[Rfam]
Rfam assigns this 77-nucleotide RNA sequence from Caenorhabditis elegans to the family "mir-233 microRNA precursor family". On this family, see de Wit et al., Genome Res 2009: "Repertoire and evolution of miRNA genes in four divergent nematode species". Its family is annotated with RISC complex and miRNA-mediated post-transcriptional gene silencing in the Gene Ontology.
RNA sequence: UUCUGUCUCGCCCAUCCCGUUGCUCCAAUAUUCUAACAACAAGUGAUUAUUGAGCAAUGCGCAUGUGCGGGAUAGAC
Number, nucleotide and partner (000 for none) at each position: 001u000002u076003c075004u074005g073006u072007c071008u070009c069010g068011c067012c000013c065014a064015u063016c000017c061018c059019g058020u057021u056022g055023c054024u053025c052026c000027a051028a050029u049030a048031u000032u046033c045034u000035a000036a000037c000038a000039a000040c000041a000042a000043g000044u000045g033046a032047u000048u030049a029050u028051u027052g025053a024054g023055c022056a021057a020058u019059g018060c000061g017062c000063a015064u014065g013066u000067g011068c010069g009070g008071g007072a006073u005074a004075g003076a002077c000